[Rfam]
RNA sequence: UCUUUAUACAUAAGGCACCUCGUUAAUUUAGUUUAUUGCUAUUUAUUAAAUUGUACGAAAGGGCUUUAUUUUUUUAAAGUAUUUUAAUGUAAAAUUACAUAUGAAUACAAAGUAUUUUGGCGAGACUCUUGAGGGAACAGGACAAGCUGAAGACUACAGGCUGAAGCUGUCCCCUAAGAAAGCGAGCCAACAAUACGAAGUAUUGUAAAUAAAGAAGCCAGUAA
Numbered sequence: 001u002c003u004u005u006a007u008a009c010a011u012a013a014g015g016c017a018c019c020u021c022g023u024u025a026a027u028u029u030a031g032u033u034u035a036u037u038g039c040u041a042u043u044u045a046u047u048a049a050a051u052u053g054u055a056c057g058a059a060a061g062g063g064c065u066u067u068a069u070u071u072u073u074u075u076a077a078a079g080u081a082u083u084u085u086a087a088u089g090u091a092a093a094a095u096u097a098c099a100u101a102u103g104a105a106u107a108c109a110a111a112g113u114a115u116u117u118u119g120g121c122g123a124g125a126c127u128c129u130u131g132a133g134g135g136a137a138c139a140g141g142a143c144a145a146g147c148u149g150a151a152g153a154c155u156a157c158a159g160g161c162u163g164a165a166g167c168u169g170u171c172c173c174c175u176a177a178g179a180a181a182g183c184g185a186g187c188c189a190a191c192a193a194u195a196c197g198a199a200g201u202a203u204u205g206u207a208a209a210u211a212a213a214g215a216a217g218c219c220a221g222u223a224a
Base pairs, nucleotide, nucleotide: 012037013036015034017032018031038064039063040062042061043060044059046058047057051055080202081201082200083199084198085197089098090097091096100109102107112196113195114194115193116192117190118189119188120187121186127179128178129177130176132175133174134173135172137170138169140167145162146161147160148159